[Rfam]
RNA sequence: CAAGGACCCGGUGCAAAUCCGGGUGGCUACUUCGGCCGCCGGUCCGCCGGACAACG
Numbered sequence: 001c002a003a004g005g006a007c008c009c010g011g012u013g014c015a016a017a018u019c020c021g022g023g024u025g026g027c028u029a030c031u032u033c034g035g036c037c038g039c040c041g042g043u044c045c046g047c048c049g050g051a052c053a054a055c056g
Stems, first nucleotide, its partner, number of pairs: 006024006012017001031051006
Dot-bracket structure: .....(((((((....).))))))......((((((.........)))))).....
The family of this 56-nucleotide sequence from Sphingobium sp. YG1 is "sul1 RNA". The family's consensus secondary structure is taken from published work. It scores 65 bits against the family's covariance model.